[Rfam]
RNA sequence: CAGCCGGUGAGAGACCGGCCGAGGCCAAAAGACUCAGGCCUCGUAGCUUGGGAGGCGCCGUGGCGCGAAAGCAAGACGGCGGAGCCCUUCGACAACAUGCUCGGAAAGGAGUAUGCGCAACGCACCAGGUUGCAAUGUAA
Numbered sequence: 001c002a003g004c005c006g007g008u009g010a011g012a013g014a015c016c017g018g019c020c021g022a023g024g025c026c027a028a029a030a031g032a033c034u035c036a037g038g039c040c041u042c043g044u045a046g047c048u049u050g051g052g053a054g055g056c057g058c059c060g061u062g063g064c065g066c067g068a069a070a071g072c073a074a075g076a077c078g079g080c081g082g083a084g085c086c087c088u089u090c091g092a093c094a095a096c097a098u099g100c101u102c103g104g105a106a107a108g109g110a111g112u113a114u115g116c117g118c119a120a121c122g123c124a125c126c127a128g129g130u131u132g133c134a135a136u137g138u139a140a
Stems, first nucleotide, its partner, number of pairs: 020043005051090005056081006065072002097114006117133003
This 140-nucleotide RNA belongs to the Rfam family "Group II catalytic intron D1-D4-4". For this family Rfam cites "Group II introns: structure and catalytic versatility of large natural ribozymes" (Lehmann and Schmidt, Crit Rev Biochem Mol Biol, 2003). About the family: Group II introns are found in rRNA, tRNA and mRNA of organelles in fungi, plants and protists, and also in mRNA in bacteria.